[Rfam]
RNA sequence: ACAGGAAAAUGACCUAUGCAUCGACAGACAGUAUAGUCAAGUGUGUCUGUCGUUUCUAUAGGCCAAUAUUCUGU
Numbered sequence: 001a002c003a004g005g006a007a008a009a010u011g012a013c014c015u016a017u018g019c020a021u022c023g024a025c026a027g028a029c030a031g032u033a034u035a036g037u038c039a040a041g042u043g044u045g046u047c048u049g050u051c052g053u054u055u056c057u058a059u060a061g062g063c064c065a066a067u068a069u070u071c072u073g074u
Base pairs, nucleotide, nucleotide: 001074002073003072004071005070006069008067010065011064013062014061015060016059018056020054022052023051024050025049026048027047028046029045030044

Shown here is a 74-nucleotide sequence from Pteropus vampyrus, a member of the family "mir-192/215 microRNA precursor family". The family has 48 seed sequences and 810 matches in Rfam 15.1. From the family's description: This family represents the human microRNA (miRNA) precursors mir-192 and mir-215. Animal miRNAs are transcribed as ~70nt precursors and subsequently processed by the Dicer enzyme to give a ~22nt product. In this case the mature sequence comes from the 5' arm of the precursor. It scores 74 bits against the family's covariance model. Taxonomically the source falls in Pteropus (Eukaryota, Opisthokonta, Bilateria, Chiroptera). Gene Ontology terms of the family: RISC complex and miRNA-mediated post-transcriptional gene silencing.